[Rfam]
RNA: Small nucleolar RNA SNORD24
RNA sequence: UGCAGAUGAUGUAAUGAAUAUUUGCUAUCUUACCAAGCAAUGCCGACAACUUUCCACCAAGAUCUCUGAUGCA
Numbered sequence: 001u002g003c004a005g006a007u008g009a010u011g012u013a014a015u016g017a018a019u020a021u022u023u024g025c026u027a028u029c030u031u032a033c034c035a036a037g038c039a040a041u042g043c044c045g046a047c048a049a050c051u052u053u054c055c056a057c058c059a060a061g062a063u064c065u066c067u068g069a070u071g072c073a
Base pairs, nucleotide, nucleotide: 001073002072003071004070